[Rfam]
This 68-nucleotide RNA sequence from Peribacillus saganii belongs to the Rfam family "Bacillaceae-1 RNA". Taxonomically the source falls in Peribacillus (Bacteria, Bacilli, Caryophanales, Bacillaceae).
RNA sequence: CAUAAAAGAACGUCGACUAAGAUCUGGCACGUCCUGUGCCAAAAGUCGACGCCAGCACAUCCUGUGCA
Numbered sequence: 001c002a003u004a005a006a007a008g009a010a011c012g013u014c015g016a017c018u019a020a021g022a023u024c025u026g027g028c029a030c031g032u033c034c035u036g037u038g039c040c041a042a043a044a045g046u047c048g049a050c051g052c053c054a055g056c057a058c059a060u061c062c063u064g065u066g067c068a
Stems, first nucleotide, its partner, number of pairs: 011051007026040005055067004
Pairs were carried over by alignment from the consensus structure, which is taken from published work. A search with the family's covariance model found it, with a score of 64 bits.